[Rfam]
RNA sequence: UCCUUUUCAAUGCUGCGUUUCUAUGCUACAAACAGAAAAGUUGCUCGUUGCAACUUCUUCAUUAUAAACAUUGCAUGUGAGAAAUUCGGAGUAAUCUUCAAAUUGUCCAAUUCUUAAAUUAAACUCUAAAUUAAGUUUUUGGCCUGCCCGUGAGGGUUCAGCGUGAUCUCACGCUUGUAAUUGGCAUCAGAAAAGCAGAGCAAGUUUUAACAGUAGCUAGCUUCCCUAAAAAGACUCUUUGCUUGAUAAUUUCUUGUCUCUAUGGGAGAGUCAUUACGAAGAUUGUGUGUGCUUUUGCAUGACACUUUAGUGCAAUACGCAGCGUGUCUUCCCCUAUUACUUUAAUUCAAGGAGAUACACAAUUCGAUUCCGAUUACUCUGAUUAGGA
Numbered sequence: 001u002c003c004u005u006u007u008c009a010a011u012g013c014u015g016c017g018u019u020u021c022u023a024u025g026c027u028a029c030a031a032a033c034a035g036a037a038a039a040g041u042u043g044c045u046c047g048u049u050g051c052a053a054c055u056u057c058u059u060c061a062u063u064a065u066a067a068a069c070a071u072u073g074c075a076u077g078u079g080a081g082a083a084a085u086u087c088g089g090a091g092u093a094a095u096c097u098u099c100a101a102a103u104u105g106u107c108c109a110a111u112u113c114u115u116a117a118a119u120u121a122a123a124c125u126c127u128a129a130a131u132u133a134a135g136u137u138u139u140u141g142g143c144c145u146g147c148c149c150g151u152g153a154g155g156g157u158u159c160a161g162c163g164u165g166a167u168c169u170c171a172c173g174c175u176u177g178u179a180a181u182u183g184g185c186a187u188c189a190g191a192a193a194a195g196c197a198g199a200g201c202a203a204g205u206u207u208u209a210a211c212a213g214u215a216g217c218u219a220g221c222u223u224c225c226c227u228a229a230a231a232a233g234a235c236u237c238u239u240u241g242c243u244u245g246a247u248a249a250u251u252u253c254u255u256g257u258c259u260c261u262a263u264g265g266g267a268g269a270g271u272c273a274u275u276a277c278g279a280a281g282a283u284u285g286u287g288u289g290u291g292c293u294u295u296u297g298c299a300u301g302a303c304a305c306u307u308u309a310g311u312g313c314a315a316u317a318c319g320c321a322g323c324g325u326g327u328c329u330u331c332c333c334c335u336a337u338u339a340c341u342u343u344a345a346u347u348c349a350a351g352g353a354g355a356u357a358c359a360c361a362a363u364u365c366g367a368u369u370c371c372g373a374u375u376a377c378u379c380u381g382a383u384u385a386g387g388a
Stems, first nucleotide, its partner, number of pairs: 001388004007382003012323007022077004038056006087372005096281004146157004160175005177277004183272003197261003324360004329355002
RNA: Nuclear RNase P